[Rfam]
A member of the RNA family "terC RNA" from Devosia chinhatensis, 63 nucleotides long. The family has 129 seed sequences and 1,112 matches in Rfam 15.1. A search with the family's covariance model found it, with a score of 43 bits. The source organism's lineage runs through Bacteria, Pseudomonadota, Hyphomicrobiales, Devosiaceae and Devosia.
RNA sequence: AGCGGUGACCGGGCCCCUCUGGCGUUGACGGCGACGACCGCAACGCGAUGUCGGAUCACCUCG
Numbered sequence: 001a002g003c004g005g006u007g008a009c010c011g012g013g014c015c016c017c018u019c020u021g022g023c024g025u026u027g028a029c030g031g032c033g034a035c036g037a038c039c040g041c042a043a044c045g046c047g048a049u050g051u052c053g054g055a056u057c058a059c060c061u062c063g
Stems, first nucleotide, its partner, number of pairs: 007056001009054004022046005029040003